[Rfam]
RNA sequence: GUUGAAGGGCUUCUGACGGAUGCCUUGGCGUAGAGAGGCGAUGAAGGACGUGGCAAGCUGCGAUAAGAGCCGGGGAGGCGCUAGCACCCUUUGAUCCGGCUAUUUCCGAAUGGGGAAACCCACCUUUGCAGUCUUCCAAUUCAUGUUCGGCUUUCGGGCCGGGCGCGGAUUGGCUGAUUGCUUAAAGGUAUAAUGACCUGAAUACAUAGGGUUCAUUAAGCAAACCCGGGGAACUGAAACAUCUCAGUACCCGGAGGAAAGGACAUCAACCGAGACUCCCGUAGUAGUGGCGAGCGAACCGGGACCAGGCCAGUGCUCUUGUGACAUAAAGCCGAACGAUCUGGAAAGGUCGGCCAUAGCGGGUGAAAGCCCCGUAGGCGUCAAACAGCAAGAGACUCGAGUAGGGCGGGACACGUGAAAUCCUGUCUGAACAUGGGGGGACCACCCUCCAAGCCUAAGUACUCCUCUACGACCGAUAGUGAACAAGUACCGUGAGGGAAAGGUGAAAAGCACCCCGACAAGGGGAGUGAAACAGAUCCUGAAAUCGGAAGCCUACAAG
Numbered sequence: 001g002u003u004g005a006a007g008g009g010c011u012u013c014u015g016a017c018g019g020a021u022g023c024c025u026u027g028g029c030g031u032a033g034a035g036a037g038g039c040g041a042u043g044a045a046g047g048a049c050g051u052g053g054c055a056a057g058c059u060g061c062g063a064u065a066a067g068a069g070c071c072g073g074g075g076a077g078g079c080g081c082u083a084g085c086a087c088c089c090u091u092u093g094a095u096c097c098g099g100c101u102a103u104u105u106c107c108g109a110a111u112g113g114g115g116a117a118a119c120c121c122a123c124c125u126u127u128g129c130a131g132u133c134u135u136c137c138a139a140u141u142c143a144u145g146u147u148c149g150g151c152u153u154u155c156g157g158g159c160c161g162g163g164c165g166c167g168g169a170u171u172g173g174c175u176g177a178u179u180g181c182u183u184a185a186a187g188g189u190a191u192a193a194u195g196a197c198c199u200g201a202a203u204a205c206a207u208a209g210g211g212u213u214c215a216u217u218a219a220g221c222a223a224a225c226c227c228g229g230g231g232a233a234c235u236g237a238a239a240c241a242u243c244u245c246a247g248u249a250c251c252c253g254g255a256g257g258a259a260a261g262g263a264c265a266u267c268a269a270c271c272g273a274g275a276c277u278c279c280c281g282u283a284g285u286a287g288u289g290g291c292g293a294g295c296g297a298a299c300c301g302g303g304a305c306c307a308g309g310c311c312a313g314u315g316c317u318c319u320u321g322u323g324a325c326a327u328a329a330a331g332c333c334g335a336a337c338g339a340u341c342u343g344g345a346a347a348g349g350u351c352g353g354c355c356a357u358a359g360c361g362g363g364u365g366a367a368a369g370c371c372c373c374g375u376a377g378g379c380g381u382c383a384a385a386c387a388g389c390a391a392g393a394g395a396c397u398c399g400a401g402u403a404g405g406g407c408g409g410g411a412c413a414c415g416u417g418a419a420a421u422c423c424u425g426u427c428u429g430a431a432c433a434u435g436g437g438g439g440g441a442c443c444a445c446c447c448u449c450c451a452a453g454c455c456u457a458a459g460u461a462c463u464c465c466u467c468u469a470c471g472a473c474c475g476a477u478a479g480u481g482a483a484c485a486a487g488u489a490c491c492g493u494g495a496g497g498g499a500a501a502g503g504u505g506a507a508a509a510g511c512a513c514c515c516c517g518a519c520a521a522g523g524g525g526a527g528u529g530a531a532a533c534a535g536a537u538c539c540u541g542a543a544a545u546c547g548g549a550a551g552c553c554u555a556c557a558a559g
Stems, first nucleotide, its partner, number of pairs: 007554010022539001023503002027474002029471007036463002038221002046107003049062003068101007077089002112121003122189007191218005196212004225256001226254005236243002266273002276459001277304005287295002307456004315396001318392005331379003337352005355359001361373003404428008435450005490497002513525004

The family of this 559-nucleotide part of an RNA from Brevundimonas sp. Leaf363 is "Bacterial large subunit ribosomal RNA". Pairs were carried over by alignment from the consensus structure, which is taken from published work. A search with the family's covariance model found it, with a score of 2746 bits.